RNA: Potassium channel RNA editing signal
RNA sequence: GUCGGGUACGGUGAUAUCUGUCCCACAACACCUUUGGGGAAGGUGGUGGGCACGGUGUGCUGCAUAUGCGGUGUGUUGGUCAUCGCUCUGCCCAUUCCCAUCAUCGUGAACAAC
Numbered sequence: 001g002u003c004g005g006g007u008a009c010g011g012u013g014a015u016a017u018c019u020g021u022c023c024c025a026c027a028a029c030a031c032c033u034u035u036g037g038g039g040a041a042g043g044u045g046g047u048g049g050g051c052a053c054g055g056u057g058u059g060c061u062g063c064a065u066a067u068g069c070g071g072u073g074u075g076u077u078g079g080u081c082a083u084c085g086c087u088c089u090g091c092c093c094a095u096u097c098c099c100a101u102c103a104u105c106g107u108g109a110a111c112a113a114c
Base pairs, nucleotide, nucleotide: 001114002113004111007108008107009106010105011104013102014101015100020095021094037077038076040074049063